[Rfam]
RNA: Small nucleolar RNA SNORA3/SNORA45 family
Organism: Liparis tanakae
RNA sequence: GUAGAGACUAGAGUCUCGCCUUGACGUCACUCAUCGUCUUGGCGUGCUAGAGUCCUCUUAGAUUGAAGACUGCUCUUAUUCACUGACUGGCCCUCUUGGUAGGCCAGUCGGCCACACGGCCAGUAACAAUG
Numbered sequence: 001g002u003a004g005a006g007a008c009u010a011g012a013g014u015c016u017c018g019c020c021u022u023g024a025c026g027u028c029a030c031u032c033a034u035c036g037u038c039u040u041g042g043c044g045u046g047c048u049a050g051a052g053u054c055c056u057c058u059u060a061g062a063u064u065g066a067a068g069a070c071u072g073c074u075c076u077u078a079u080u081c082a083c084u085g086a087c088u089g090g091c092c093c094u095c096u097u098g099g100u101a102g103g104c105c106a107g108u109c110g111g112c113c114a115c116a117c118g119g120c121c122a123g124u125a126a127c128a129a130u131g
Base pairs, nucleotide, nucleotide: 003058004057005056006055007053008052009051012048013047015046017044018043019042020041023038024037025036026035070123071122072121074119075118083111084110085109086108088106089105090104091103092102